This 81-nucleotide RNA from Gallus gallus belongs to the Rfam family "mir-128 microRNA precursor family".
[Rfam]
RNA sequence: GAGCUGUUGAAUUCGGGGCCGUAACACUGUCUGAGAGGUUUAUAUUUCUCACAGUGAACCGGUCUCUUUUUCAGCUGCUUC
Dot-bracket structure: .....(((((....(((((((...((((((..(((............)))))))))...)))))))....)))))......